RNA sequence: GGGAGAGUAUGGCGGACUGGUGUCGCCCCGGGACUUCAAAUCCCGUGGAGGGUAGCUCUGGCUACUCCUCGGAGGGUUCGAUUCCCUCACUCUCCC
Numbered sequence: 001g002g003g004a005g006a007g008u009a010u011g012g013c014g015g016a017c018u019g020g021u022g023u024c025g026c027c028c029c030g031g032g033a034c035u036u037c038a039a040a041u042c043c044c045g046u047g048g049a050g051g052g053u054a055g056c057u058c059u060g061g062c063u064a065c066u067c068c069u070c071g072g073a074g075g076g077u078u079c080g081a082u083u084c085c086c087u088c089a090c091u092c093u094c095c096c
Base pairs, nucleotide, nucleotide: 001096002095003094004093005092006091007090008089011027012026013025015024016023017022029045030044031043032042033041048070049069050068051067052066073087074086075085076084
RNA: Selenocysteine transfer RNA